[Rfam]
RNA sequence: UGUCAUGUAGCUUAUCAGACUGGUGUUGGCUGUAUGUUUUAUACCAACAGCAGUUUGAUAAUCUGUCUGAAA
Numbered sequence: 001u002g003u004c005a006u007g008u009a010g011c012u013u014a015u016c017a018g019a020c021u022g023g024u025g026u027u028g029g030c031u032g033u034a035u036g037u038u039u040u041a042u043a044c045c046a047a048c049a050g051c052a053g054u055u056u057g058a059u060a061a062u063c064u065g066u067c068u069g070a071a072a
Stems, first nucleotide, its partner, number of pairs: 008065003012061004018055005024049005
Rfam assigns this 72-nucleotide RNA sequence from Danionella cerebrum to the family "mir-21 microRNA precursor family". The base pairs follow the family's consensus structure, which was predicted with RNAalifold. The match comes from Rfam's covariance-model search (57 bits). Gene Ontology terms of the family: RISC complex and miRNA-mediated post-transcriptional gene silencing.